[Rfam]
The record is a 135-nucleotide RNA from Rhinopomastus cyanomelas, which matches "Small nucleolar RNA SNORA84" in Rfam. The family's RNA type in Rfam is H/ACA-box small nucleolar RNA. The source organism's lineage runs through Eukaryota, Gnathostomata, Aves, Neoaves and Rhinopomastus.

RNA sequence: GCCCUGUGGUUGCUGGAGGCUGGUUUGUCUGUACAGUGCUUCAGUUGGUAGGAAUGGGCCAACAGUGAUACUGUGAUUUACGCAUGGAGGCUAUGACAUGUCAGCAGCUUCCAUAGCCCAGUCACAGUUACAGAC
Numbered sequence: 001g002c003c004c005u006g007u008g009g010u011u012g013c014u015g016g017a018g019g020c021u022g023g024u025u026u027g028u029c030u031g032u033a034c035a036g037u038g039c040u041u042c043a044g045u046u047g048g049u050a051g052g053a054a055u056g057g058g059c060c061a062a063c064a065g066u067g068a069u070a071c072u073g074u075g076a077u078u079u080a081c082g083c084a085u086g087g088a089g090g091c092u093a094u095g096a097c098a099u100g101u102c103a104g105c106a107g108c109u110u111c112c113a114u115a116g117c118c119c120a121g122u123c124a125c126a127g128u129u130a131c132a133g134a135c
Stems, first nucleotide, its partner, number of pairs: 001059004007050002010047001012045006019037004071127001073125006082117002084114004089109004094104001